A member of the RNA family "c-di-AMP riboswitch aptamer (ydaO/yuaA leader)" from Sulfobacillus thermosulfidooxidans, 153 nucleotides long.
[Rfam]
RNA sequence: CGACUCCACGCGCCGAAUCGUAAUUUUUGUAAUUACGUACGGGGGAUUACUAGGAUUUUAUCCUAGGGUGAAUCGUUUGCCAUAACGGGCAAAUGUAGGGCUCCUUCAGCCCGAACCACAGAACUAACCUCGAAGGCAAUAUCCGAAGGAAGG
Numbered sequence: 001c002g003a004c005u006c007c008a009c010g011c012g013c014c015g016a017a018u019c020g021u022a023a024u025u026u027u028u029g030u031a032a033u034u035a036c037g038u039a040c041g042g043g044g045g046a047u048u049a050c051u052a053g054g055a056u057u058u059u060a061u062c063c064u065a066g067g068g069u070g071a072a073u074c075g076u077u078u079g080c081c082a083u084a085a086c087g088g089g090c091a092a093a094u095g096u097a098g099g100g101c102u103c104c105u106u107c108a109g110c111c112c113g114a115a116c117c118a119c120a121g122a123a124c125u126a127a128c129c130u131c132g133a134a135g136g137c138a139a140u141a142u143c144c145g146a147a148g149g150a151a152g153g
Stems, first nucleotide, its partner, number of pairs: 012137003019037007040132005051065004067117002074095007098112004